[Rfam]
Background
Small nucleolar RNA Z199: an 80-nucleotide RNA sequence from Cynara cardunculus. Rfam's curators write: snoZ199 is a C/D box small nucleolar RNA, which acts as a methylation guide RNA for sites on 18S and 25S rRNA. Rice snoZ199 is reported to be homologous to Arabidopsis snoR13. The family has 17 seed sequences and 953 matches in Rfam 15.1. Rfam links the family to the GO terms RNA processing and nucleolus. The literature on the family includes a 2003 paper in Nucleic Acids Res by Chen et al., "The high diversity of snoRNAs in plants: identification and comparative study of 120 snoRNA genes from Oryza sativa".
RNA sequence: CAUAUAUGAUGAGAAAGUUAACUGCAACAAAAUGAUCGACGAUUUUGUCGUGAUUACUAGUAUUUAAGUCUCUGAUUAUG
Dot-bracket structure: ((.(................................(((((....))))).........................)..))